Rfam assigns this 90-nucleotide RNA sequence from Inhella inkyongensis to the family "SAH (S-adenosyl-L-homocysteine) riboswitch aptamer". For this family Rfam cites "Riboswitches that sense S-adenosylhomocysteine and activate genes involved in coenzyme recycling" (Wang et al., Mol Cell, 2008). Rfam links the family to the GO terms S-adenosylhomocysteine metabolic process and regulation of gene expression. The family's consensus secondary structure is taken from published work. The match comes from Rfam's covariance-model search (54 bits).
RNA sequence: GCCUUCGAGGAGCGCUGCAAUCCCACCGUGGACCAGGCUCGAAGGCCAGGGGCGAAGCACCAACCCCUGCGGCAACGGCGCUCACCCGCU
Numbered sequence: 001g002c003c004u005u006c007g008a009g010g011a012g013c014g015c016u017g018c019a020a021u022c023c024c025a026c027c028g029u030g031g032a033c034c035a036g037g038c039u040c041g042a043a044g045g046c047c048a049g050g051g052g053c054g055a056a057g058c059a060c061c062a063a064c065c066c067c068u069g070c071g072g073c074a075a076c077g078g079c080g081c082u083c084a085c086c087c088g089c090u
Base pairs, nucleotide, nucleotide: 002045003044004043005042006041007040008039021032022031023030025029